[Rfam]
RNA sequence: CAGCUGUAAUGGCUAACUGGUAAGGAAGAUGAGACACCAAGACAUGGCAAACCCGCGCUUGAUAGCAUGGUUCGCGUGUGAGGAACGAACGUUGCGUUGACACUGUCCGCAGUUGGGUAACCACUGCAGAGAUGGGGUCCUCAGAAGUGAGAGUAAUAGUCAGAGAGUCUUCACUCAGCAGCUACCUCUCAAACGUGACGUGGCGCAUUCUCAUUGCACGCGAGCUAGGGUACGUCGUAUCACAAGUCUCACCAACCUUUUU
Numbered sequence: 001c002a003g004c005u006g007u008a009a010u011g012g013c014u015a016a017c018u019g020g021u022a023a024g025g026a027a028g029a030u031g032a033g034a035c036a037c038c039a040a041g042a043c044a045u046g047g048c049a050a051a052c053c054c055g056c057g058c059u060u061g062a063u064a065g066c067a068u069g070g071u072u073c074g075c076g077u078g079u080g081a082g083g084a085a086c087g088a089a090c091g092u093u094g095c096g097u098u099g100a101c102a103c104u105g106u107c108c109g110c111a112g113u114u115g116g117g118u119a120a121c122c123a124c125u126g127c128a129g130a131g132a133u134g135g136g137g138u139c140c141u142c143a144g145a146a147g148u149g150a151g152a153g154u155a156a157u158a159g160u161c162a163g164a165g166a167g168u169c170u171u172c173a174c175u176c177a178g179c180a181g182c183u184a185c186c187u188c189u190c191a192a193a194c195g196u197g198a199c200g201u202g203g204c205g206c207a208u209u210c211u212c213a214u215u216g217c218a219c220g221c222g223a224g225c226u227a228g229g230g231u232a233c234g235u236c237g238u239a240u241c242a243c244a245a246g247u248c249u250c251a252c253c254a255a256c257c258u259u260u261u262u
Stems, first nucleotide, its partner, number of pairs: 002014003019262002022259004028253001030251005041241002044238005051231003057066003070225010080212005086205002089201009099139003103135003106130002109127005115122002140144001148191006157184004165176003
Dot-bracket structure: .(((.......)))....((.((((..(.(((((......((.(((((..(((...(((....)))...(((((((((((((((.((.(((((((((.(((.(((((.(((((.((....))))))).))..))).)))(...)...((((((...((((....(((......)))....)))).)))))).)))))))))..))..)))))...))))))))))...)))..))))).)).....))))).)..)))).))

Notes: The family of this 262-nucleotide sequence from Blumeria graminis is "Fungal signal recognition particle RNA". The family's RNA type in Rfam is non-coding RNA gene. The family's consensus secondary structure is taken from published work. Rfam links the family to the GO terms SRP-dependent cotranslational protein targeting to membrane, signal sequence recognition, signal recognition particle, endoplasmic reticulum targeting and signal recognition particle, plasma membrane targeting.